[Rfam]
RNA sequence: GCGAUCGUCAUUACCUGACAGUAUUAGAUAUUUCAUUAUAGCACUCUAAUAUUGUUCAGGUAAGACGAUUGC
Numbered sequence: 001g002c003g004a005u006c007g008u009c010a011u012u013a014c015c016u017g018a019c020a021g022u023a024u025u026a027g028a029u030a031u032u033u034c035a036u037u038a039u040a041g042c043a044c045u046c047u048a049a050u051a052u053u054g055u056u057c058a059g060g061u062a063a064g065a066c067g068a069u070u071g072c
Stems, first nucleotide, its partner, number of pairs: 002071008011063007018055011

Rfam assigns this 72-nucleotide sequence from Cercopithifilaria johnstoni to the family "mir-8/mir-141/mir-200 microRNA precursor family". Lineage of the source: Eukaryota > Bilateria > Filarioidea > Onchocercidae > Cercopithifilaria.